The record is a 69-nucleotide RNA sequence, which matches "Small nucleolar RNA SNORD42" in Rfam.
Pairs were carried over by alignment from the consensus structure, which was predicted with PFOLD.
Rfam 15.1 lists 848 matches to the family in 572 species.
The family's RNA type in Rfam is C/D-box small nucleolar RNA.
A reference for the family is Galardi et al. (2002), "Purified box C/D snoRNPs are able to reproduce site-specific 2'-O-methylation of target RNA in vitro", Mol Cell Biol.
About the family: snoRNA U42 is found in intron 3 of the ribosomal protein L23a (RPL23a) gene in humans and is also present in mice.

[Rfam]
RNA sequence: UAGCAUAUGAUGGAAAAAUCUUAAUCUUCUGAGACUUGUGAUGUCUUCAAAGGAACCACUUCAAUGCAA
Numbered sequence: 001u002a003g004c005a006u007a008u009g010a011u012g013g014a015a016a017a018a019u020c021u022u023a024a025u026c027u028u029c030u031g032a033g034a035c036u037u038g039u040g041a042u043g044u045c046u047u048c049a050a051a052g053g054a055a056c057c058a059c060u061u062c063a064a065u066g067c068a069a
Base pairs, nucleotide, nucleotide: 001069003067004066005065